[Rfam]
RNA sequence: GGGGGCGUUACGGAUUCGACAGGCAUUGUCGCGCAUGAACUGCAACUGCUGAGGGAUCAGGAUAAUCAUCCGCAGAUAAAUAUAACUGCUAAAAAUAAUACACAAACUUACGCAAUGGCAGCCUAAACAGCACCAUGCGUGCCUGAUUUUUGCUCACUGAUGGCAAUUUGACGGCCUAAACUUUUAGUCAGAUACGUUGUUGUGGAGACUUGACGCAGCAAAAGAGAUUUAAAGUCCCGCAAAAUGUCGCUGUUUGAGACUGGCUUUGGCAUUUUGUUAAAUUUGAGAAAGUCCUAUGGUUGUAGACGUUGAUGUAGCAAGGUGUUUGGACAGGGGUUCGACUCCCCUCGCCUCCAUUA
Numbered sequence: 001g002g003g004g005g006c007g008u009u010a011c012g013g014a015u016u017c018g019a020c021a022g023g024c025a026u027u028g029u030c031g032c033g034c035a036u037g038a039a040c041u042g043c044a045a046c047u048g049c050u051g052a053g054g055g056a057u058c059a060g061g062a063u064a065a066u067c068a069u070c071c072g073c074a075g076a077u078a079a080a081u082a083u084a085a086c087u088g089c090u091a092a093a094a095a096u097a098a099u100a101c102a103c104a105a106a107c108u109u110a111c112g113c114a115a116u117g118g119c120a121g122c123c124u125a126a127a128c129a130g131c132a133c134c135a136u137g138c139g140u141g142c143c144u145g146a147u148u149u150u151u152g153c154u155c156a157c158u159g160a161u162g163g164c165a166a167u168u169u170g171a172c173g174g175c176c177u178a179a180a181c182u183u184u185u186a187g188u189c190a191g192a193u194a195c196g197u198u199g200u201u202g203u204g205g206a207g208a209c210u211u212g213a214c215g216c217a218g219c220a221a222a223a224g225a226g227a228u229u230u231a232a233a234g235u236c237c238c239g240c241a242a243a244a245u246g247u248c249g250c251u252g253u254u255u256g257a258g259a260c261u262g263g264c265u266u267u268g269g270c271a272u273u274u275u276g277u278u279a280a281a282u283u284u285g286a287g288a289a290a291g292u293c294c295u296a297u298g299g300u301u302g303u304a305g306a307c308g309u310u311g312a313u314g315u316a317g318c319a320a321g322g323u324g325u326u327u328g329g330a331c332a333g334g335g336g337u338u339c340g341a342c343u344c345c346c347c348u349c350g351c352c353u354c355c356a357u358u359a
Stems, first nucleotide, its partner, number of pairs: 001355007020328008033315004038310003043302005049060003054071004114136001116135003141176001143174003150166005157191005197221008207236005239277010252266001258293003264287001332348005
Description
A member of the RNA family "transfer-messenger RNA" from Lactococcus cremoris, 359 nucleotides long. For this family Rfam cites "Phylogenetic analysis of tmRNA secondary structure" (Williams and Bartel, RNA, 1996). The sequence is in the family's curated seed alignment. It is annotated as a non-coding RNA gene. Pairs were carried over by alignment from the consensus structure, which is taken from published work. About the family: Bacterial tmRNA, also known as 10Sa RNA or SsrA, is named for its dual tRNA and mRNA-like properties.